[Rfam]
RNA sequence: GGAAUCCCACCAGAAAAGGUUAGCCAACCAUUCUGUAGCGAGUCUUGAGAGGCACAGGGUGACCUGUGUAUCUAAGCGUAGACAGCAAACUAGCAGGCCGGAAGCGUAAGUUGAAGCGAUAGAGCCCCGAAAUCCCGAAAAUGGUGAAGGCCGAUGCUGUGGUCGGAGCAGAAGGCUACACCUUGCUGGUCGCAAAUGGCAAGAACAGCAAGGCUUCCCCGGGGUCGUAAGCCU
Number, nucleotide and partner (000 for none) at each position: 001g000002g000003a000004a000005u000006c000007c000008c000009a000010c000011c035012a034013g033014a032015a031016a000017a000018g029019g028020u027021u202022a000023g200024c199025c000026a000027a020028c019029c018030a000031u015032u014033c013034u012035g011036u000037a000038g086039c085040g000041a000042g083043u082044c081045u080046u078047g077048a073049g072050a071051g000052g069053c068054a067055c066056a065057g064058g063059g000060u000061g000062a000063c058064c057065u056066g055067u054068g053069u052070a000071u050072c049073u048074a000075a000076g000077c047078g046079u000080a045081g044082a043083c042084a000085g039086c038087a000088a000089a000090c000091u000092a000093g000094c000095a000096g000097g000098c000099c000100g000101g000102a000103a000104g000105c000106g000107u000108a000109a000110g000111u000112u000113g000114a000115a000116g000117c000118g000119a000120u000121a228122g226123a000124g225125c224126c223127c222128c221129g220130a000131a000132a000133u000134c000135c000136c000137g000138a000139a000140a000141a000142u000143g000144g219145u000146g217147a216148a215149g214150g176151c175152c174153g000154a000155u170156g169157c168158u167159g000160u000161g000162g000163u000164c000165g000166g000167a158168g157169c156170a155171g000172a000173a000174g152175g151176c150177u000178a000179c000180a000181c213182c212183u211184u210185g209186c208187u207188g206189g000190u204191c203192g000193c000194a000195a000196a000197u000198g000199g024200c023201a000202a021203g191204a190205a000206c188207a187208g186209c185210a184211a183212g182213g181214c149215u148216u147217c146218c000219c144220c129221g128222g127223g126224g125225u124226c122227g000228u121229a000230a000231g000232c000233c000234u000
RNA: Group II catalytic intron D1-D4-6
Organism: Peptococcaceae bacterium CEB3